[Rfam]
RNA: T-box leader
Organism: Bacillus safensis
Nucleotides: 221
Stems, first nucleotide, its partner, number of pairs: 007100002015095004026084006038074003049071006103138004107133002140153003172186005191218004202214004
Number, partner (000 for none) and nucleotide at each position: 001000a002000u003000u004000g005000u006000u007100g008099c009000g010000a011000u012000g013000a014000a015095a016094a017093a018092g019000a020000a021000g022000a023000g024000u025000a026084c027083a028082u029081a030080u031079a032000u033000u034000c035000a036000c037000c038074a039073u040072u041000u042000a043000c044000a045000g046000a047000g048000a049071g050070u051069c052068u053067g054066c055000g056000g057000c058000c059000g060000g061000u062000g063000u064000g065000a066054g067053c068052a069051g070050a071049u072040a073039a074038u075000g076000g077000c078000a079031u080030g081029u082028a083027u084026g085000g086000a087000a088000u089000g090000g091000g092018c093017u094016u095015u096000g097000g098000a099008g100007c101000a102000g103138c104137u105136a106135a107133c108132c109000g110000a111000a112000c113000a114000c115000u116000u117000c118000u119000a120000a121000a122000a123000a124000a125000g126000u127000g128000a129000g130000u131000a132108g133107g134000c135106u136105u137104a138103g139000a140153c141152g142151g143000a144000g145000c146000a147000g148000u149000c150000u151142c152141c153140g154000u155000u156000a157000u158000c159000a160000a161000c162000g163000u164000c165000u166000u167000g168000a169000g170000u171000g172186a173185u174184u175183u176182c177000u178000a179000u180000g181000u182176g183175a184174a185173a186172u187000a188000a189000c190000a191218a192217g193216g194215g195000u196000g197000g198000u199000a200000c201000c202214a203213c204212g205211g206000u207000u208000c209000a210000u211205u212204c213203g214202u215194c216193c217192c218191u219000u220000u221000u